The record is a 76-nucleotide RNA from Ignelater luminosus, which matches "mir-9/mir-79 microRNA precursor family" in Rfam. Its family is annotated with RISC complex and miRNA-mediated post-transcriptional gene silencing in the Gene Ontology.
[Rfam]
RNA sequence: CCGAUGUUUUCUUUGGUUAUCUAGCUGUAUGAGUGCAUUCUACGUCAUAAAGCUAGGUUACCGGAGUUAAAACCAG
Number, nucleotide and partner (000 for none) at each position: 001c076002c000003g074004a000005u072006g000007u070008u069009u000010u000011c066012u065013u064014u063015g062016g061017u060018u000019a058020u057021c056022u055023a054024g053025c052026u051027g000028u049029a048030u047031g046032a045033g000034u000035g000036c000037a000038u000039u000040c000041u000042a000043c000044g000045u032046c031047a030048u029049a028050a000051a026052g025053c024054u023055a022056g021057g020058u019059u000060a017061c016062c015063g014064g013065a012066g011067u000068u000069a008070a007071a000072a005073c000074c003075a000076g001

The literature on the family includes a 2001 paper in Science by Lagos-Quintana et al., "Identification of novel genes coding for small expressed RNAs".